RNA sequence: ACCACAUUCGGACCGUCGGUCUACCGCGUAAUAGCACCCGCUCGGUGGAAGAUCUUCCCUUCGUCGU
Numbered sequence: 001a002c003c004a005c006a007u008u009c010g011g012a013c014c015g016u017c018g019g020u021c022u023a024c025c026g027c028g029u030a031a032u033a034g035c036a037c038c039c040g041c042u043c044g045g046u047g048g049a050a051g052a053u054c055u056u057c058c059c060u061u062c063g064u065c066g067u
Stems, first nucleotide, its partner, number of pairs: 004064002010058003015053003020049007028041002